Background:
Shown here is a 377-nucleotide sequence from Limosilactobacillus mucosae, a member of the family "Bacterial RNase P class B". Gene Ontology terms of the family: tRNA processing, ribonuclease P activity and dimeric ribonuclease P complex. Rfam describes the family as follows. Ribonuclease P (RNase P) is a ubiquitous endoribonuclease, found in archaea, bacteria and eukarya as well as chloroplasts and mitochondria. Its best characterised activity is the generation of mature 5'-ends of tRNAs by cleaving the 5'-leader elements of precursor-tRNAs. Cellular RNase Ps are ribonucleoproteins. RNA from bacterial RNase Ps retains its catalytic activity in the absence of the protein subunit, i.e. it is a ribozyme. NCBI's taxonomy places the organism under Bacteria, Bacillati, Lactobacillales, Limosilactobacillus, Limosilactobacillus mucosae.
RNA sequence: GGUCUUGGGCGAUCGGGCAUGAUCAUGCAUCAUGUCAGGAAGGUCCAUGCUCGCACAGACUGCGAUGUCUGUAGUGUUUGUGCUCGCUGAAAAAAUAAGGCGGGGCACCGAGUAAAUUCGGUGACGGCGGGAAAACCGGCUAAGGCGCAAGCUAUGCCCUAGUAUCCCUGAAAAGUGCCACAGUGACGAAGCAGGAUUGGAAACAGUACUGGUGGAACGCGGUAAACCCCUCAAGCGGUAAACCCAAACUACGGUAGGGGAGCUUUGGAUAGCGAAUUGAAGUGAUUCCAGGGGAGAGUUUUUACUCUGAGAUAGAUGAUUGCCUCGACAUCGUCAUGACCUGGUGAUGGUGUUACGACAAAACAUGGCCUACAGAG
Dot-bracket structure: ...(((((((((((.((((((.........))))))....[[[.[[[[[.((((((((((......)))))).....(((.(((((((..........))))))(((((((......)))))).)((.((((.....(((...(((....)))..)))......))))......(((((............(((.((((....)))).))).........)))..))))).)))))))....(((...........)))...(((((((.................))))))).(((((....))))).........)))))))..(((((((((((......))))))))))).........]]]]]]]].).)))
Numbered sequence: 001g002g003u004c005u006u007g008g009g010c011g012a013u014c015g016g017g018c019a020u021g022a023u024c025a026u027g028c029a030u031c032a033u034g035u036c037a038g039g040a041a042g043g044u045c046c047a048u049g050c051u052c053g054c055a056c057a058g059a060c061u062g063c064g065a066u067g068u069c070u071g072u073a074g075u076g077u078u079u080g081u082g083c084u085c086g087c088u089g090a091a092a093a094a095a096u097a098a099g100g101c102g103g104g105g106c107a108c109c110g111a112g113u114a115a116a117u118u119c120g121g122u123g124a125c126g127g128c129g130g131g132a133a134a135a136c137c138g139g140c141u142a143a144g145g146c147g148c149a150a151g152c153u154a155u156g157c158c159c160u161a162g163u164a165u166c167c168c169u170g171a172a173a174a175g176u177g178c179c180a181c182a183g184u185g186a187c188g189a190a191g192c193a194g195g196a197u198u199g200g201a202a203a204c205a206g207u208a209c210u211g212g213u214g215g216a217a218c219g220c221g222g223u224a225a226a227c228c229c230c231u232c233a234a235g236c237g238g239u240a241a242a243c244c245c246a247a248a249c250u251a252c253g254g255u256a257g258g259g260g261a262g263c264u265u266u267g268g269a270u271a272g273c274g275a276a277u278u279g280a281a282g283u284g285a286u287u288c289c290a291g292g293g294g295a296g297a298g299u300u301u302u303u304a305c306u307c308u309g310a311g312a313u314a315g316a317u318g319a320u321u322g323c324c325u326c327g328a329c330a331u332c333g334u335c336a337u338g339a340c341c342u343g344g345u346g347a348u349g350g351u352g353u354u355a356c357g358a359c360a361a362a363a364c365a366u367g368g369c370c371u372a373c374a375g376a377g
Stems, first nucleotide, its partner, number of pairs: 004377003007373001008324007016036006041371003045368005051238004055072006078234003082230001083104006105125001106123006126229002129168004138158003144153003175227002177223003192211003196207004243259003263293007295308005327354011

A reference for the family is Frank and Pace (1998), "Ribonuclease P: unity and diversity in a tRNA processing ribozyme", Annu Rev Biochem.
By type it is a ribozyme.